RNA: c-di-AMP riboswitch aptamer (ydaO/yuaA leader)
Organism: Nocardioides sp. GY 10113
RNA sequence: CGCUGAGUCCGGGCCGCCAGCGGUCCGGAGCCGGGGAACCACACCACCUCUGGGGUGAGUCCCGCACGAGAGCGCCACGGUGAGAACCAGGGCGUGGAGUGCGGGUAGGGCAAGUCGUGCCCGAAUCCGUCAGCUCACCCGGUAGGCGUA
Numbered sequence: 001c002g003c004u005g006a007g008u009c010c011g012g013g014c015c016g017c018c019a020g021c022g023g024u025c026c027g028g029a030g031c032c033g034g035g036g037a038a039c040c041a042c043a044c045c046a047c048c049u050c051u052g053g054g055g056u057g058a059g060u061c062c063c064g065c066a067c068g069a070g071a072g073c074g075c076c077a078c079g080g081u082g083a084g085a086a087c088c089a090g091g092g093c094g095u096g097g098a099g100u101g102c103g104g105g106u107a108g109g110g111c112a113a114g115u116c117g118u119g120c121c122c123g124a125a126u127c128c129g130u131c132a133g134c135u136c137a138c139c140c141g142g143u144a145g146g147c148g149u150a
Base pairs, nucleotide, nucleotide: 001148002147003146004145008029009028010027011026012025013024014023015022016021030143031142032141033140034139035138040052041051053128054127055126061105062104063103064102065101066100067099108122109121110120111119